[Rfam]
RNA sequence: CCCUAGCCGGGGGGCCACAUGAGUGGAAGGCCGGACGCGGAUUAGUCGGACAGUGCCGCGCAUAAGAAAAACCCCGACAGCC
Numbered sequence: 001c002c003c004u005a006g007c008c009g010g011g012g013g014g015c016c017a018c019a020u021g022a023g024u025g026g027a028a029g030g031c032c033g034g035a036c037g038c039g040g041a042u043u044a045g046u047c048g049g050a051c052a053g054u055g056c057c058g059c060g061c062a063u064a065a066g067a068a069a070a071a072c073c074c075c076g077a078c079a080g081c082c
Stems, first nucleotide, its partner, number of pairs: 002014003007034004016025003036060005045078005